[Rfam]
RNA: Guanidine-II riboswitch aptamer (mini-ykkC)
Organism: Halovibrio variabilis
RNA sequence: CCCUAGGGACGACCCUAGAAGGCAAAGCAACCUGCGGGACGGCCCGC
Numbered sequence: 001c002c003c004u005a006g007g008g009a010c011g012a013c014c015c016u017a018g019a020a021g022g023c024a025a026a027g028c029a030a031c032c033u034g035c036g037g038g039a040c041g042g043c044c045c046g047c
Stems, first nucleotide, its partner, number of pairs: 003018006034047005